The record is a 74-nucleotide RNA sequence from Cnephaeus nilssonii, which matches "mir-9279 microRNA precursor family" in Rfam. The family has 4 seed sequences and 208 matches in Rfam 15.1. Gene Ontology terms of the family: miRNA-mediated post-transcriptional gene silencing and RISC complex.
RNA sequence: CCAGGUGAGGCCACGCACCCCUGGGUCCGGGUGAGGCUACGCGCCCCUGGGUCCGGGUGAGGCCAUGCGCCCCU
Numbered sequence: 001c002c003a004g005g006u007g008a009g010g011c012c013a014c015g016c017a018c019c020c021c022u023g024g025g026u027c028c029g030g031g032u033g034a035g036g037c038u039a040c041g042c043g044c045c046c047c048u049g050g051g052u053c054c055g056g057g058u059g060a061g062g063c064c065a066u067g068c069g070c071c072c073c074u
Stems, first nucleotide, its partner, number of pairs: 004071004009064004016059005023054009033045001036042002
Lineage of the source: Eukaryota > Eumetazoa > Bilateria > Yangochiroptera > Cnephaeus. The family's consensus secondary structure was predicted with RNAalifold.